[Rfam]
RNA: bantam microRNA precursor family
Organism: Cloeon dipterum
RNA sequence: UGCAGCUGACGAAACUGGCUUUCUCAGUGAUCUUCCAGAUGCAUUUUUAAUUCUGAGAUCAUUGUGAAAGCUGAUUUUGUUUA
Numbered sequence: 001u002g003c004a005g006c007u008g009a010c011g012a013a014a015c016u017g018g019c020u021u022u023c024u025c026a027g028u029g030a031u032c033u034u035c036c037a038g039a040u041g042c043a044u045u046u047u048u049a050a051u052u053c054u055g056a057g058a059u060c061a062u063u064g065u066g067a068a069a070g071c072u073g074a075u076u077u078u079g080u081u082u083a
Stems, first nucleotide, its partner, number of pairs: 009080006016073008025064001028061006